[Rfam]
RNA sequence: AGAGGGAAGAGGAAGAACGAGCUUUUAAGAGCAGUGGGAAUGGGAUCAUUGAGGAAGUUCUCUUCCUACUUCUUCCAAAGUUUGGAAGAUGGGCAUGUCGGGUAUUUCCCGAUGCCUCCCAUUCCUAUUGUUUUUAGGCGCUCCUUCCUCUUCCUCAUAACU
Numbered sequence: 001a002g003a004g005g006g007a008a009g010a011g012g013a014a015g016a017a018c019g020a021g022c023u024u025u026u027a028a029g030a031g032c033a034g035u036g037g038g039a040a041u042g043g044g045a046u047c048a049u050u051g052a053g054g055a056a057g058u059u060c061u062c063u064u065c066c067u068a069c070u071u072c073u074u075c076c077a078a079a080g081u082u083u084g085g086a087a088g089a090u091g092g093g094c095a096u097g098u099c100g101g102g103u104a105u106u107u108c109c110c111g112a113u114g115c116c117u118c119c120c121a122u123u124c125c126u127a128u129u130g131u132u133u134u135u136a137g138g139c140g141c142u143c144c145u146u147c148c149u150c151u152u153c154c155u156c157a158u159a160a161c162u
Stems, first nucleotide, its partner, number of pairs: 009153005015147003019143003024138010035127011047114003051110001053109006

MIR2118 microRNA precursor family: a 162-nucleotide sequence from Phoenix dactylifera. Pairs were carried over by alignment from the consensus structure, which was predicted with RNAalifold. On this family, see Johnson et al., Genome Res 2009: "Clusters and superclusters of phased small RNAs in the developing inflorescence of rice".